[Rfam]
RNA sequence: AAAGUCCCGACAUGGAAAGGGUUAACCACCCACCAUUACCGAGUGUUGCGCCUCUGGCGGAACGGUGUUUUGGUCAGGAAGACUGGAGCAUUCGUGAACAAGAAAGGUGAAGCGUACACAGGGUAUGUUGCAGGCCGUUUGGAGACGUAGGACCUUAGAGAUGGUAUCGCUUCGAAAUGAACAGUUCCGGUUGGCCAGCGCUGUAACGUAUGCGAAGCCCACACAAAUCAGGCGCCCUGGUAAGCCUGUAGAGAAUCGGCGGAGUUCUCAAGCU
Numbered sequence: 001a002a003a004g005u006c007c008c009g010a011c012a013u014g015g016a017a018a019g020g021g022u023u024a025a026c027c028a029c030c031c032a033c034c035a036u037u038a039c040c041g042a043g044u045g046u047u048g049c050g051c052c053u054c055u056g057g058c059g060g061a062a063c064g065g066u067g068u069u070u071u072g073g074u075c076a077g078g079a080a081g082a083c084u085g086g087a088g089c090a091u092u093c094g095u096g097a098a099c100a101a102g103a104a105a106g107g108u109g110a111a112g113c114g115u116a117c118a119c120a121g122g123g124u125a126u127g128u129u130g131c132a133g134g135c136c137g138u139u140u141g142g143a144g145a146c147g148u149a150g151g152a153c154c155u156u157a158g159a160g161a162u163g164g165u166a167u168c169g170c171u172u173c174g175a176a177a178u179g180a181a182c183a184g185u186u187c188c189g190g191u192u193g194g195c196c197a198g199c200g201c202u203g204u205a206a207c208g209u210a211u212g213c214g215a216a217g218c219c220c221a222c223a224c225a226a227a228u229c230a231g232g233c234g235c236c237c238u239g240g241u242a243a244g245c246c247u248g249u250a251g252a253g254a255a256u257c258g259g260c261g262g263a264g265u266u267c268u269c270a271a272g273c274u
Stems, first nucleotide, its partner, number of pairs: 012036004019031004023243001025241002039122002043119004047114002049109005055103001166268001169265006187259006193219003198213003224253001229248005
RNA: Group II catalytic intron D1-D4-6
Organism: endosymbiont of Escarpia spicata